[Rfam]
RNA: ArcZ RNA
RNA sequence: GCGUGUAACCAUUCACCGGCUGCGUGCGCCUAAAAUUUAUUCGAAUGAUUAAGCGCGGCUACGAUUUCCCUGGUGUUGGCGCAACGUUCGCGCACCCCGGCCUGGCC
Dot-bracket structure: ..................(((((((...........................)))))))............(((....((((.......)))))))...........